[Rfam]
Record summary
Shown here is a 197-nucleotide RNA sequence from Nocardioides marmorisolisilvae, a member of the family "Actinobacteria sRNA Ms_IGR-5". The pairing is the family consensus, mapped onto this sequence.
RNA sequence: ACACGGGAAAGGAGGUGGUCCAAGAAAUGAUUUCUACUAGGACGCGUGAGGUGGCUGCUCGUUAGCAGCACCCGGCCUCUUCCGUAGGGGCGACGCCGGCCGGCUGCCGGCGAAUCCAACAGCAGCCACCCGACCCGCAGGCGAACCGGUAGUCCACCGGGGUGAGUCACCCGACUCACGCCUGCGGGUCGCUGCGU
Numbered sequence: 001a002c003a004c005g006g007g008a009a010a011g012g013a014g015g016u017g018g019u020c021c022a023a024g025a026a027a028u029g030a031u032u033u034c035u036a037c038u039a040g041g042a043c044g045c046g047u048g049a050g051g052u053g054g055c056u057g058c059u060c061g062u063u064a065g066c067a068g069c070a071c072c073c074g075g076c077c078u079c080u081u082c083c084g085u086a087g088g089g090g091c092g093a094c095g096c097c098g099g100c101c102g103g104c105u106g107c108c109g110g111c112g113a114a115u116c117c118a119a120c121a122g123c124a125g126c127c128a129c130c131c132g133a134c135c136c137g138c139a140g141g142c143g144a145a146c147c148g149g150u151a152g153u154c155c156a157c158c159g160g161g162g163u164g165a166g167u168c169a170c171c172c173g174a175c176u177c178a179c180g181c182c183u184g185c186g187g188g189u190c191g192c193u194g195c196g197u
Stems, first nucleotide, its partner, number of pairs: 014059006060112004065107002068104002073098003131191013146160005